[Rfam]
RNA sequence: CAUCGACAGUACGUCGGUCGCCGGUUUUCUGACCCGUCCCCCGUUGGAUACCGGUUGUUGCGACAGCCUCAUUCCCCUCUCCGGGCUGUCGUUUGUGAGUGUAGUGAUAUGGCCGUUGUGGUAACCCCCUCACCGCAACGGCCAAUUCAC
Numbered sequence: 001c002a003u004c005g006a007c008a009g010u011a012c013g014u015c016g017g018u019c020g021c022c023g024g025u026u027u028u029c030u031g032a033c034c035c036g037u038c039c040c041c042c043g044u045u046g047g048a049u050a051c052c053g054g055u056u057g058u059u060g061c062g063a064c065a066g067c068c069u070c071a072u073u074c075c076c077c078u079c080u081c082c083g084g085g086c087u088g089u090c091g092u093u094u095g096u097g098a099g100u101g102u103a104g105u106g107a108u109a110u111g112g113c114c115g116u117u118g119u120g121g122u123a124a125c126c127c128c129c130u131c132a133c134c135g136c137a138a139c140g141g142c143c144a145a146u147u148c149a150c
Stems, first nucleotide, its partner, number of pairs: 021054005027048001031045003058095001060092009107146001110144012